[Rfam]
RNA sequence: AAAAACACCCAUUAAAAGAGUACUUCCCCAGCCCGGAGCUACUCUUCCAUAUUCUGAAUUU
Numbered sequence: 001a002a003a004a005a006c007a008c009c010c011a012u013u014a015a016a017a018g019a020g021u022a023c024u025u026c027c028c029c030a031g032c033c034c035g036g037a038g039c040u041a042c043u044c045u046u047c048c049a050u051a052u053u054c055u056g057a058a059u060u061u
Stems, first nucleotide, its partner, number of pairs: 017045006024038004
RNA: Plastid-psbN 5UTR RNA